[Rfam]
The record is a 97-nucleotide sequence from Clostridium sp. D5, which matches "Purine riboswitch aptamer" in Rfam.
Lineage of the source: Bacteria > Bacillota > Clostridia > Clostridiaceae > Clostridium.
RNA sequence: AGAUAAUCAAUUGCAUAUGCUUGUAUAAGUUCAUAAUCUGGAUGAACGUUUCUACCAACUGCCAUAAUAGUUGACUACAGGUUUUUGUCUAUCGACA
Numbered sequence: 001a002g003a004u005a006a007u008c009a010a011u012u013g014c015a016u017a018u019g020c021u022u023g024u025a026u027a028a029g030u031u032c033a034u035a036a037u038c039u040g041g042a043u044g045a046a047c048g049u050u051u052c053u054a055c056c057a058a059c060u061g062c063c064a065u066a067a068u069a070g071u072u073g074a075c076u077a078c079a080g081g082u083u084u085u086u087g088u089c090u091a092u093c094g095a096c097a
Base pairs, nucleotide, nucleotide: 019082020081021080022079023078024077025076029047030046031045032044033043034042056073057072058071059070060069061068